Notes
Rfam assigns this 133-nucleotide RNA sequence from Caenorhabditis angaria to the family "Caenorhabditis snoRNA ceN51". By type it is an H/ACA-box small nucleolar RNA. For this family Rfam cites "Systematic identification of non-coding RNA 2,2,7-trimethylguanosine cap structures in Caenorhabditis elegans" (Jia et al., BMC Mol Biol, 2007). Pairs were carried over by alignment from the consensus structure, which was predicted with RNAalifold.
RNA sequence: AUCUGCGUGAGUACUGGUUGUUUGGUGAUUUUCAGACAACCAAACAGCUGUCAUCAACCACGCCAAAUUGUAAUGGUGCAUUUAAAUUACCGGAUGACUCUAGAGAUCAUUCGGAGGAGGUGCCUCAACAACC
Numbered sequence: 001a002u003c004u005g006c007g008u009g010a011g012u013a014c015u016g017g018u019u020g021u022u023u024g025g026u027g028a029u030u031u032u033c034a035g036a037c038a039a040c041c042a043a044a045c046a047g048c049u050g051u052c053a054u055c056a057a058c059c060a061c062g063c064c065a066a067a068u069u070g071u072a073a074u075g076g077u078g079c080a081u082u083u084a085a086a087u088u089a090c091c092g093g094a095u096g097a098c099u100c101u102a103g104a105g106a107u108c109a110u111u112c113g114g115a116g117g118a119g120g121u122g123c124c125u126c127a128a129c130a131a132c133c
Stems, first nucleotide, its partner, number of pairs: 005063005011058002013051002016049005022043003027040001075126002078123005087116002090114003094110004